[Rfam]
RNA sequence: CACAUCCACCCAUUCACAACGGAUCGUCGGGCACGUACCUGCCCGUGAAGGGAAAUAUCA
Numbered sequence: 001c002a003c004a005u006c007c008a009c010c011c012a013u014u015c016a017c018a019a020c021g022g023a024u025c026g027u028c029g030g031g032c033a034c035g036u037a038c039c040u041g042c043c044c045g046u047g048a049a050g051g052g053a054a055a056u057a058u059c060a
Base pairs, nucleotide, nucleotide: 010052011051013049014048015047016046028045029044030043031042032041033040
RNA: msiK RNA